[Rfam]
The family of this 68-nucleotide RNA sequence is "DUF3800-IX RNA".
RNA sequence: GACUCCGAACUAAACUGUGGCGUUUAUCGUCGCGCUUCCCCUAAAAAGGAAUAGGUUCGGAGUUUUUC
Number, nucleotide and partner (000 for none) at each position: 001g064002a063003c062004u061005c060006c059007g058008a057009a056010c055011u054012a000013a000014a000015c000016u034017g033018u032019g031020g030021c029022g028023u000024u000025u000026a000027u000028c022029g021030u020031c019032g018033c017034g016035c000036u051037u050038c049039c048040c000041c000042u000043a000044a000045a000046a000047a000048g039049g038050a037051a036052u000053a000054g011055g010056u009057u008058c007059g006060g005061a004062g003063u002064u001065u000066u000067u000068c000
Rfam classes the family as a small RNA.
Rfam's curators write: Actinobacteria, Firmicutes (1 example), Nitrospirae, Proteobacteria, Verrucomicrobia (1 example).
The base pairs follow the family's consensus structure, which is taken from published work.
It is one of the family's seed sequences.